[Rfam]
RNA sequence: UACAUCGGUCAGUAGCUGCAGCAAUGUAGAGGAAAGUCCGUGCUAACACCACCUGCGAUGGUGGUAGUGUUCAUGCCAGGACUAAUAAGCCUGGGCUUAGACGACUAGUGCCACAGAGACGAGAAUUGUGAAACGCGGUAAACUCCAUGAGUUAGAAACCCAAAUUAUGGUAGGGGAACCUAAGUUAGGAAAUGAACAAUACUUAGGAAUGUUCCUUGCGAACAUUAGAUAAAUUACUGACACUGCUUUUGCAGAACAGAACACGGCUUAUAGAU
Numbered sequence: 001u002a003c004a005u006c007g008g009u010c011a012g013u014a015g016c017u018g019c020a021g022c023a024a025u026g027u028a029g030a031g032g033a034a035a036g037u038c039c040g041u042g043c044u045a046a047c048a049c050c051a052c053c054u055g056c057g058a059u060g061g062u063g064g065u066a067g068u069g070u071u072c073a074u075g076c077c078a079g080g081a082c083u084a085a086u087a088a089g090c091c092u093g094g095g096c097u098u099a100g101a102c103g104a105c106u107a108g109u110g111c112c113a114c115a116g117a118g119a120c121g122a123g124a125a126u127u128g129u130g131a132a133a134c135g136c137g138g139u140a141a142a143c144u145c146c147a148u149g150a151g152u153u154a155g156a157a158a159c160c161c162a163a164a165u166u167a168u169g170g171u172a173g174g175g176g177a178a179c180c181u182a183a184g185u186u187a188g189g190a191a192a193u194g195a196a197c198a199a200u201a202c203u204u205a206g207g208a209a210u211g212u213u214c215c216u217u218g219c220g221a222a223c224a225u226u227a228g229a230u231a232a233a234u235u236a237c238u239g240a241c242a243c244u245g246c247u248u249u250u251g252c253a254g255a256a257c258a259g260a261a262c263a264c265g266g267c268u269u270a271u272a273g274a275u
Base pairs, nucleotide, nucleotide: 004275005274006273007271008241009240010239011238012237013236014235016029017028018027019026020025034269035268036267038266039265040264041263042262043155044154045153046152047151048065049064050063051062052061053060071150072149073148074147075146076094077093078092079091080090095102096100103145104144108143109142110139111138112137159175160174161173179207180206181205182204183203184202185201208226209225210224211223212222213221243254244253245252246251
RNA: Bacterial RNase P class B
Organism: Mycoplasmopsis gallinacea